[Rfam]
The record is an 89-nucleotide RNA sequence from Subsaximicrobium wynnwilliamsii, which matches "S15-Flavobacteria ribosomal protein leader" in Rfam. Its Rfam clan is "Ribosomal Protein S15 Leader clan". The match comes from Rfam's covariance-model search (60 bits). It is annotated as a cis-regulatory leader. On this family, see Eckert and Weinberg, BMC Microbiol 2020: "Discovery of 20 novel ribosomal leader candidates in bacteria and archaea". NCBI's taxonomy places the organism under Bacteria, Pseudomonadati, Flavobacteriales, Flavobacteriaceae, Subsaximicrobium.
RNA sequence: UAUAUUUGCAGCUUGAAAGAACGACUUUCAUUACCUACCCAACAAGAAUUGGGUAAUACAUAAAAAUCAUUUACAAUAAUAUUAGCAUG
Numbered sequence: 001u002a003u004a005u006u007u008g009c010a011g012c013u014u015g016a017a018a019g020a021a022c023g024a025c026u027u028u029c030a031u032u033a034c035c036u037a038c039c040c041a042a043c044a045a046g047a048a049u050u051g052g053g054u055a056a057u058a059c060a061u062a063a064a065a066a067u068c069a070u071u072u073a074c075a076a077u078a079a080u081a082u083u084a085g086c087a088u089g
Stems, first nucleotide, its partner, number of pairs: 036055006